[Rfam]
RNA sequence: UCUAUCCGGCUCAUUCGAUCACUGGGGUUGGUCUCGUUUGAGACUCAUGAAUUUUACUAAUAAAUGUUUAAUUAUUCAUGAGUCUCAAACGAGACCAACCCCAGUGAUCGAAUGAGCCGGAUAGA
Dot-bracket structure: (((((.((((((((...((((((((((((((((((((((((((.(((((((.(....................)))))))).))))))))))))))))))))))))))...)))))))).)))))
A member of the RNA family "mir-63 microRNA precursor family" from Rosa chinensis, 125 nucleotides long.
Pairs were carried over by alignment from the consensus structure, which was predicted with RNAalifold.
Rfam links the family to the GO terms miRNA-mediated post-transcriptional gene silencing and RISC complex.
The organism belongs to Rosa, within Eukaryota.
A reference for the family is de Wit et al. (2009), "Repertoire and evolution of miRNA genes in four divergent nematode species", Genome Res.